[Rfam]
RNA: mir-172 microRNA precursor family
Organism: Camphora micrantha
RNA sequence: CUAAUUGCUGAUGCAGCAUCAUCAAGAUUCUCAUCCAAAACACAUGCGAAAAAACAUGAACACAGUAGCCACAAUGCAUGUGAAUCUUGAUGAUGCUGCAUCCGCAAACAU
Numbered sequence: 001c002u003a004a005u006u007g008c009u010g011a012u013g014c015a016g017c018a019u020c021a022u023c024a025a026g027a028u029u030c031u032c033a034u035c036c037a038a039a040a041c042a043c044a045u046g047c048g049a050a051a052a053a054a055c056a057u058g059a060a061c062a063c064a065g066u067a068g069c070c071a072c073a074a075u076g077c078a079u080g081u082g083a084a085u086c087u088u089g090a091u092g093a094u095g096c097u098g099c100a101u102c103c104g105c106a107a108a109c110a111u
Stems, first nucleotide, its partner, number of pairs: 010102021032080002